[Rfam]
RNA sequence: UGCAUCUGUGAUGAAACUUUGGCUCCCUCUACUGAAUCGAGUGAGGAAAACAGCCUUAACCGUUACCCAAGUCUUCUGAGAUGCU
Numbered sequence: 001u002g003c004a005u006c007u008g009u010g011a012u013g014a015a016a017c018u019u020u021g022g023c024u025c026c027c028u029c030u031a032c033u034g035a036a037u038c039g040a041g042u043g044a045g046g047a048a049a050a051c052a053g054c055c056u057u058a059a060c061c062g063u064u065a066c067c068c069a070a071g072u073c074u075u076c077u078g079a080g081a082u083g084c085u
Stems, first nucleotide, its partner, number of pairs: 002084005

Shown here is an 85-nucleotide RNA from Rostratula benghalensis, a member of the family "Small nucleolar RNA SNORD100". For this family Rfam cites "Purified box C/D snoRNPs are able to reproduce site-specific 2'-O-methylation of target RNA in vitro" (Galardi et al., Mol Cell Biol, 2002). By type it is a C/D-box small nucleolar RNA. The family has 26 seed sequences and 838 matches in Rfam 15.1. The match comes from Rfam's covariance-model search (69 bits). Its Rfam clan is "SNORD100 clan". Rfam links the family to the GO terms nucleolus and RNA processing.